[Rfam]
Shown here is a 303-nucleotide sequence from Lysinibacillus sphaericus, a member of the family "Bacillus sRNA ncr1575".
On this family, see Irnov et al., Nucleic Acids Res 2010: "Identification of regulatory RNAs in Bacillus subtilis".
Rfam classes the family as a small RNA.

RNA sequence: GUAACUAAACAUGAAGGGACGAUGGGUGGCUAAUGAUUAACUAAUCUUAUUUUUUGCACAUGAAAUGUAUAUUUCAAUGAAUCAAAAAUAGGAUUAGUCUGCCCAUUUUCCAUAAUGUACACGAUUGUAGACUCAAACGUCUGCUAUUGUUGAACGUAUACUAAAAAUGCAAAUUACCGUACGACUGCGCUUGGUGUGGCAUUUUUAGUAUUGGAGCAUCUCAUAAUAAGGCUCAAACAUUGAGCUUUUUUGUGUUUGAUAUUUCGCGACUAAUCCUUCCAAAAUAAUUGGAGGGAUUUUUUU
Numbered sequence: 001g002u003a004a005c006u007a008a009a010c011a012u013g014a015a016g017g018g019a020c021g022a023u024g025g026g027u028g029g030c031u032a033a034u035g036a037u038u039a040a041c042u043a044a045u046c047u048u049a050u051u052u053u054u055u056g057c058a059c060a061u062g063a064a065a066u067g068u069a070u071a072u073u074u075c076a077a078u079g080a081a082u083c084a085a086a087a088a089u090a091g092g093a094u095u096a097g098u099c100u101g102c103c104c105a106u107u108u109u110c111c112a113u114a115a116u117g118u119a120c121a122c123g124a125u126u127g128u129a130g131a132c133u134c135a136a137a138c139g140u141c142u143g144c145u146a147u148u149g150u151u152g153a154a155c156g157u158a159u160a161c162u163a164a165a166a167a168u169g170c171a172a173a174u175u176a177c178c179g180u181a182c183g184a185c186u187g188c189g190c191u192u193g194g195u196g197u198g199g200c201a202u203u204u205u206u207a208g209u210a211u212u213g214g215a216g217c218a219u220c221u222c223a224u225a226a227u228a229a230g231g232c233u234c235a236a237a238c239a240u241u242g243a244g245c246u247u248u249u250u251u252g253u254g255u256u257u258g259a260u261a262u263u264u265c266g267c268g269a270c271u272a273a274u275c276c277u278u279c280c281a282a283a284a285u286a287a288u289u290g291g292a293g294g295g296a297u298u299u300u301u302u303u
Stems, first nucleotide, its partner, number of pairs: 016111004023105004029099001031097001042096013061076006122252003132244005272298011